[Rfam]
Nucleotides: 105
Stems, first nucleotide, its partner, number of pairs: 006093005011055004016049001017030005037048004061086003067080004
Number, partner (000 for none) and nucleotide at each position: 001000c002000g003000c004000g005000u006093c007092u008091u009090g010089u011055c012054g013053g014052g015000g016049u017030g018029c019028c020027u021026a022000g023000u024000u025000g026021u027020a028019g029018g030017c031000u032000g033000a034000g035000a036000u037048c038047g039046g040045u041000g042000c043000a044000u045040a046039c047038c048037g049016g050000a051000g052014c053013c054012c055011g056000u057000u058000g059000a060000a061086c062085c063084u064000g065000a066000u067080c068079g069078g070077g071000u072000u073000a074000a075000u076000c077070c078069c079068c080067g081000c082000g083000g084063a085062g086061g087000a088000a089010a090009c091008a092007a093006g094000c095000a096000c097000c098000g099000c100000c101000u102000g103000c104000c105000g